[Rfam]
RNA: Small nucleolar RNA SNORA61
RNA sequence: CACCUCUGGUUCCCGUUCCCGUGGGAUCUGAGCACCUGUCCUGGUGGUCGUAAAAGGAGGACUAGUUAUACUGAAGCUGUCCUCACGAGGCCUGUUAUAGCAUGCGGGCUAGUUUCAAACAAGG
Numbered sequence: 001c002a003c004c005u006c007u008g009g010u011u012c013c014c015g016u017u018c019c020c021g022u023g024g025g026a027u028c029u030g031a032g033c034a035c036c037u038g039u040c041c042u043g044g045u046g047g048u049c050g051u052a053a054a055a056g057g058a059g060g061a062c063u064a065g066u067u068a069u070a071c072u073g074a075a076g077c078u079g080u081c082c083u084c085a086c087g088a089g090g091c092c093u094g095u096u097a098u099a100g101c102a103u104g105c106g107g108g109c110u111a112g113u114u115u116c117a118a119a120c121a122a123g124g
Stems, first nucleotide, its partner, number of pairs: 003060005019047004025040003077112003081108003